[Rfam]
RNA sequence: CUUAUCCAAAGGCAAACGGGGAGAAAUCUCCGGACGCAAAGCCGAGGGCCCUAACCUGAUCGUCAGGAAGGGUGGCCGGGUUGCAUAG
Numbered sequence: 001c002u003u004a005u006c007c008a009a010a011g012g013c014a015a016a017c018g019g020g021g022a023g024a025a026a027u028c029u030c031c032g033g034a035c036g037c038a039a040a041g042c043c044g045a046g047g048g049c050c051c052u053a054a055c056c057u058g059a060u061c062g063u064c065a066g067g068a069a070g071g072g073u074g075g076c077c078g079g080g081u082u083g084c085a086u087a088g
Stems, first nucleotide, its partner, number of pairs: 012037002017032006040082004046077002048073003055067004
The record is an 88-nucleotide sequence from Candidatus Accumulibacter cognatus, which matches "c-di-GMP-I riboswitch aptamer" in Rfam. GEMM was predicted in a large-scale screen for bacterial structured RNA regulatory elements. The source organism's lineage runs through Bacteria, Pseudomonadati, Pseudomonadota, Betaproteobacteria and Candidatus Accumulibacter. Pairs were carried over by alignment from the consensus structure, which is taken from published work. Rfam links the family to the GO term cyclic-di-GMP binding.